A member of the RNA family "Small nucleolar RNA SNORA40" from Canis lupus, 126 nucleotides long. The family's consensus secondary structure was predicted with RNAalifold. By type it is an H/ACA-box small nucleolar RNA.
RNA sequence: CGCACUUGUACAUGUUUUUGUUUAGCUGUGAACAAAGACUUAGACUAAGUGCAAAAAAUAAAUCCUCUUUUGCAACCCAGAACUCAUGGCUCAGUAUGAGUUUUGAUACAGAUAAGAAGGAACAAC
Numbered sequence: 001c002g003c004a005c006u007u008g009u010a011c012a013u014g015u016u017u018u019u020g021u022u023u024a025g026c027u028g029u030g031a032a033c034a035a036a037g038a039c040u041u042a043g044a045c046u047a048a049g050u051g052c053a054a055a056a057a058a059u060a061a062a063u064c065c066u067c068u069u070u071u072g073c074a075a076c077c078c079a080g081a082a083c084u085c086a087u088g089g090c091u092c093a094g095u096a097u098g099a100g101u102u103u104u105g106a107u108a109c110a111g112a113u114a115a116g117a118a119g120g121a122a123c124a125a126c
Base pairs, nucleotide, nucleotide: 002052003051004050005049006048007047008046011043014039015038016037017036018035019034020033021032026030063122065120066119068117069116070115071114072113078105079104080103081102082101083100084099085098086097087096

The snoRNA ACA 40 belongs to the H/ACA family of snoRNAs and guides the pseudouridylation of 28S rRNA subunit at position U4565. NB This family has a high threshold value to exclude a large number of closely related sequences that do not appear to have conserved H and ACA boxes, and may be pseudogenes.